[Rfam]
RNA sequence: GAGAAAUGAGGAAAAUAUAGCAAGUCUUGAGUCAUAAUGAAGACUUUAAUCCAACUCUGAUCUCUGAGCACAGUC
Numbered sequence: 001g002a003g004a005a006a007u008g009a010g011g012a013a014a015a016u017a018u019a020g021c022a023a024g025u026c027u028u029g030a031g032u033c034a035u036a037a038u039g040a041a042g043a044c045u046u047u048a049a050u051c052c053a054a055c056u057c058u059g060a061u062c063u064c065u066g067a068g069c070a071c072a073g074u075c
Base pairs, nucleotide, nucleotide: 001064002063003062004061